[Rfam]
RNA sequence: CUUAAGAGAGUCUAAUAGAGAAUAGAAAUCUCUAGUAAAGUAAAAAAGUAAAAGUUCUUUUAGUAAAUAUAAACUAUAAAAGUAUAGCCUAUUAAUCUUUUAUUCUUUUAAGAUUUAGUACUAAAGGUACUAGAA
Numbered sequence: 001c002u003u004a005a006g007a008g009a010g011u012c013u014a015a016u017a018g019a020g021a022a023u024a025g026a027a028a029u030c031u032c033u034a035g036u037a038a039a040g041u042a043a044a045a046a047a048g049u050a051a052a053a054g055u056u057c058u059u060u061u062a063g064u065a066a067a068u069a070u071a072a073a074c075u076a077u078a079a080a081a082g083u084a085u086a087g088c089c090u091a092u093u094a095a096u097c098u099u100u101u102a103u104u105c106u107u108u109u110a111a112g113a114u115u116u117a118g119u120a121c122u123a124a125a126g127g128u129a130c131u132a133g134a135a
Stems, first nucleotide, its partner, number of pairs: 001087002007058004012054001013039001016034006040049002075084003098126005106120001108118002